Background
The family of this 305-nucleotide RNA sequence from Urocynchramus pylzowi is "Metazoan signal recognition particle RNA". The base pairs follow the family's consensus structure, which is taken from published work. Rfam's curators write: The signal recognition particle (SRP) is a universally conserved ribonucleoprotein.
RNA sequence: GCCGGGCGUUGUGGCGUGCGCCUGUAAUCCUAGCUGUGGGGGAGGCUGAGCCCGACGGAUCUCUUGAGCCCUGGAGUUCGAGGCUGCCGAGCGCUGUGUCAUGUGGGCGUCCGAGCUAAACCGGCAUUAUUGAUGUGGUGACCCUGGUGGAUGGUGGGGCACACCAGGGCGCCUGAUUUGAGGGGUCGAGUGGCCCAGGUCUGAAUUGGAGCAGGUGGAAGCUCCCGUGGCAGUCGGUGGCGGGACCGCGCCAGUGAACAGCAAAGCCAGUAUACCAUGGGCAAUAGAGAGACACGUGGUCUCAC
Numbered sequence: 001g002c003c004g005g006g007c008g009u010u011g012u013g014g015c016g017u018g019c020g021c022c023u024g025u026a027a028u029c030c031u032a033g034c035u036g037u038g039g040g041g042g043a044g045g046c047u048g049a050g051c052c053c054g055a056c057g058g059a060u061c062u063c064u065u066g067a068g069c070c071c072u073g074g075a076g077u078u079c080g081a082g083g084c085u086g087c088c089g090a091g092c093g094c095u096g097u098g099u100c101a102u103g104u105g106g107g108c109g110u111c112c113g114a115g116c117u118a119a120a121c122c123g124g125c126a127u128u129a130u131u132g133a134u135g136u137g138g139u140g141a142c143c144c145u146g147g148u149g150g151a152u153g154g155u156g157g158g159g160c161a162c163a164c165c166a167g168g169g170c171g172c173c174u175g176a177u178u179u180g181a182g183g184g185g186u187c188g189a190g191u192g193g194c195c196c197a198g199g200u201c202u203g204a205a206u207u208g209g210a211g212c213a214g215g216u217g218g219a220a221g222c223u224c225c226c227g228u229g230g231c232a233g234u235c236g237g238u239g240g241c242g243g244g245a246c247c248g249c250g251c252c253a254g255u256g257a258a259c260a261g262c263a264a265a266g267c268c269a270g271u272a273u274a275c276c277a278u279g280g281g282c283a284a285u286a287g288a289g290a291g292a293c294a295c296g297u298g299g300u301c302u303c304a305c
Stems, first nucleotide, its partner, number of pairs: 001046003004023006028043003048303003052299003060292006068282004074276001081273001083271004088266001093262005099256001103255002106252005111244002115241004122233001124231002128229003131171002134168001136166005142159005148153001172180001182225005191218001193216003200209002